[Rfam]
RNA sequence: GACAGAAGAAGGACAGCUAAGUUCGCCACGUCCUGUGGCAACGCUGUUCUGACCCACAUCGUGUGAG
Numbered sequence: 001g002a003c004a005g006a007a008g009a010a011g012g013a014c015a016g017c018u019a020a021g022u023u024c025g026c027c028a029c030g031u032c033c034u035g036u037g038g039c040a041a042c043g044c045u046g047u048u049c050u051g052a053c054c055c056a057c058a059u060c061g062u063g064u065g066a067g
Base pairs, nucleotide, nucleotide: 011049012048013047014046015045016044017043025039026038027037028036029035053067055065056064057063
RNA: Bacillaceae-1 RNA
Organism: Peribacillus saganii